[Rfam]
RNA sequence: CGCAUAUUUUGCGAUGGCGGAGCUCGACCGCCGGUCGAAGUGAUGGUCGGGUUCAUCCAUUGCCCGGCAGCGCAUGCACGCAUGCGCGAGAGGGGACGAUCAGCGUGAGGCGCACGGGGUCGAGCCGAUCUGCAGAGUUCUGCCGAUCGCCCCG
Number, nucleotide and partner (000 for none) at each position: 001c000002g000003c000004a000005u000006a000007u000008u000009u000010u000011g000012c000013g000014a000015u000016g068017g000018c066019g065020g064021a000022g000023c000024u000025c000026g000027a000028c000029c000030g000031c000032c000033g000034g000035u000036c000037g000038a000039a000040g000041u000042g000043a000044u000045g000046g000047u000048c000049g000050g000051g000052u000053u000054c000055a000056u000057c000058c000059a000060u000061u000062g000063c000064c020065c019066g018067g000068c016069a000070g000071c000072g000073c000074a000075u000076g000077c000078a000079c000080g000081c000082a000083u000084g000085c000086g000087c000088g000089a000090g000091a000092g000093g000094g000095g000096a000097c000098g000099a000100u000101c000102a000103g000104c000105g000106u000107g000108a000109g000110g000111c000112g000113c000114a000115c154116g153117g152118g151119g150120u000121c000122g000123a000124g000125c000126c149127g148128a000129u146130c145131u000132g143133c142134a141135g140136a000137g000138u000139u000140c135141u134142g133143c132144c000145g130146a129147u000148c127149g126150c119151c118152c117153c116154g115
RNA: ALIL pseudoknot